[Rfam]
RNA sequence: CCUGAUAAAGCCAAACUCGUCGUGAGGCGGGGACGGAAAGCCACGGGUCUUAGAAUAAGAUAGCCGGGUUACCUGGA
Numbered sequence: 001c002c003u004g005a006u007a008a009a010g011c012c013a014a015a016c017u018c019g020u021c022g023u024g025a026g027g028c029g030g031g032g033a034c035g036g037a038a039a040g041c042c043a044c045g046g047g048u049c050u051u052a053g054a055a056u057a058a059g060a061u062a063g064c065c066g067g068g069u070u071a072c073c074u075g076g077a
Base pairs, nucleotide, nucleotide: 004073011036012035016031017030018029019028020027021026034063039070040069041068042067044066045065046064047061048060049059

c-di-GMP-I-GGC riboswitch aptamer: a 77-nucleotide RNA from Candidatus Vecturithrix granuli. For this family Rfam cites "Recognition of the bacterial second messenger cyclic diguanylate by its cognate riboswitch" (Kulshina et al., Nat Struct Mol Biol, 2009). Clan: c-di-GMP_I riboswitch clan.